[Rfam]
RNA sequence: GUGGACAGCCAAAUAGCAUCUCGUAUAAGCCGAAGAAUAUGGCUUCGGCGUCUCUACCAGAUGACCGUAAAUCAUCUGACUACGAGAGAAAGUGUGCCUAGG
Numbered sequence: 001g002u003g004g005a006c007a008g009c010c011a012a013a014u015a016g017c018a019u020c021u022c023g024u025a026u027a028a029g030c031c032g033a034a035g036a037a038u039a040u041g042g043c044u045u046c047g048g049c050g051u052c053u054c055u056a057c058c059a060g061a062u063g064a065c066c067g068u069a070a071a072u073c074a075u076c077u078g079a080c081u082a083c084g085a086g087a088g089a090a091a092g093u094g095u096g097c098c099u100a101g102g
Stems, first nucleotide, its partner, number of pairs: 019087007029049007058078007
RNA: Purine riboswitch aptamer
Organism: Carboxydocella thermautotrophica